Small nucleolar RNA psi18S-841/snoR66: a 130-nucleotide sequence from Spodoptera exigua.
[Rfam]
RNA sequence: UGCAAGGGCACUCUGUGUUAUUCAUUCAAUAUGAUAAUUACAAUUUGUUACCUUGCUAUAAUAAUUCUACCAAAUCCUAUUCUAUGUGAGCUUGUACAUGGCUACAUGGUCAUAGUGGUGGAUACAUUGU
Numbered sequence: 001u002g003c004a005a006g007g008g009c010a011c012u013c014u015g016u017g018u019u020a021u022u023c024a025u026u027c028a029a030u031a032u033g034a035u036a037a038u039u040a041c042a043a044u045u046u047g048u049u050a051c052c053u054u055g056c057u058a059u060a061a062u063a064a065u066u067c068u069a070c071c072a073a074a075u076c077c078u079a080u081u082c083u084a085u086g087u088g089a090g091c092u093u094g095u096a097c098a099u100g101g102c103u104a105c106a107u108g109g110u111c112a113u114a115g116u117g118g119u120g121g122a123u124a125c126a127u128u129g130u
Stems, first nucleotide, its partner, number of pairs: 002056006010048002014042003017038005023033002062129003067121001069119003074116002082109001084107004
Its family is annotated with nucleolus and RNA processing in the Gene Ontology. Pairs were carried over by alignment from the consensus structure, which was predicted with RNAfold. It is annotated as an H/ACA-box small nucleolar RNA. Taxonomically the source falls in Spodoptera (Eukaryota, Insecta, Eumetabola, Lepidoptera).